[Rfam]
RNA: Glycine riboswitch aptamer
RNA sequence: GCGACUCUGGAAAGUCAGGACGACAGCUGUCCUGCGCCCACGGUGCAAACCGCCCAUCUCGGGCGGUGAAGCUCUCAGGUUCCGAUGACAGAGCGGGGAGG
Numbered sequence: 001g002c003g004a005c006u007c008u009g010g011a012a013a014g015u016c017a018g019g020a021c022g023a024c025a026g027c028u029g030u031c032c033u034g035c036g037c038c039c040a041c042g043g044u045g046c047a048a049a050c051c052g053c054c055c056a057u058c059u060c061g062g063g064c065g066g067u068g069a070a071g072c073u074c075u076c077a078g079g080u081u082c083c084g085a086u087g088a089c090a091g092a093g094c095g096g097g098g099a100g101g
Stems, first nucleotide, its partner, number of pairs: 002096001005093005016034004036080003040075001043074001045072001049067006